Shown here is a 104-nucleotide sequence from Rhodoferax lacus, a member of the family "Glycine riboswitch aptamer". Taxonomically the source falls in Rhodoferax (Bacteria, Pseudomonadota, Burkholderiales, Comamonadaceae). It scores 59 bits against the family's covariance model.
RNA sequence: UCAACCAGGUCAGGAGAGAGCCUUUCUUUGAGGAGGCCGCCGAAGGCGCAGGGUUGCUGAUCACAGCAGUCUGAACGCUCAGGCAAAAGGACUGACAAGCGUGU
Numbered sequence: 001u002c003a004a005c006c007a008g009g010u011c012a013g014g015a016g017a018g019a020g021c022c023u024u025u026c027u028u029u030g031a032g033g034a035g036g037c038c039g040c041c042g043a044a045g046g047c048g049c050a051g052g053g054u055u056g057c058u059g060a061u062c063a064c065a066g067c068a069g070u071c072u073g074a075a076c077g078c079u080c081a082g083g084c085a086a087a088a089g090g091a092c093u094g095a096c097a098a099g100c101g102u103g104u
Stems, first nucleotide, its partner, number of pairs: 006099001009096005020037004039084003042080002046078003052072002